The family of this 86-nucleotide RNA sequence from Gossypium mustelinum is "small nucleolar RNA snoR117".

[Rfam]
RNA sequence: UGCCUGUGAUGUUCUAACAUUUGUCCGUACCAUCUGAGAAAUUUUUUUUCCUGAUGUAUUCUCUCUAAGUUUUAUUUCUGAGGCAU
Numbered sequence: 001u002g003c004c005u006g007u008g009a010u011g012u013u014c015u016a017a018c019a020u021u022u023g024u025c026c027g028u029a030c031c032a033u034c035u036g037a038g039a040a041a042u043u044u045u046u047u048u049u050c051c052u053g054a055u056g057u058a059u060u061c062u063c064u065c066u067a068a069g070u071u072u073u074a075u076u077u078c079u080g081a082g083g084c085a086u
Stems, first nucleotide, its partner, number of pairs: 001085004